[Rfam]
RNA: mir-142 microRNA precursor family
RNA sequence: UGCAGUCACCCAUAAAGUAGAAAGCACUACUAAACAGCACUGCAGGGUGUAGUGUUUCCUACUUUAUGGAU
Number, nucleotide and partner (000 for none) at each position: 001u000002g000003c000004a000005g000006u000007c000008a000009c000010c000011c068012a067013u066014a065015a064016a063017g062018u061019a060020g059021a000022a000023a056024g055025c054026a053027c052028u051029a050030c049031u000032a000033a000034a000035c000036a000037g000038c000039a000040c000041u000042g000043c000044a000045g000046g000047g000048u000049g030050u029051a028052g027053u026054g025055u024056u023057u000058c000059c020060u019061a018062c017063u016064u015065u014066a013067u012068g011069g000070a000071u000